Shown here is a 111-nucleotide sequence from Myotis lucifugus, a member of the family "Small nucleolar RNA SNORA43". Rfam 15.1 lists 492 matches to the family in 142 species. ACA43 is a member of the H/ACA class of snoRNA that guide the sites of modification of uridines to pseudouridines.
[Rfam]
RNA sequence: CAGGUGCUGGAUCUGCUGGCACCACAGACAUCGGGGCACAGAGGAAGUGGCUAUUUCUACACUCAGUGCUCAGAACAGUGGGCACUAAGAAUAGUUUAUAGCCCGACAGUC
Numbered sequence: 001c002a003g004g005u006g007c008u009g010g011a012u013c014u015g016c017u018g019g020c021a022c023c024a025c026a027g028a029c030a031u032c033g034g035g036g037c038a039c040a041g042a043g044g045a046a047g048u049g050g051c052u053a054u055u056u057c058u059a060c061a062c063u064c065a066g067u068g069c070u071c072a073g074a075a076c077a078g079u080g081g082g083c084a085c086u087a088a089g090a091a092u093a094g095u096u097u098a099u100a101g102c103c104c105g106a107c108a109g110u111c
Base pairs, nucleotide, nucleotide: 004037005036007034008033009032010031049103050102051101057094058093059092062089063088067084068083069082070081071080072079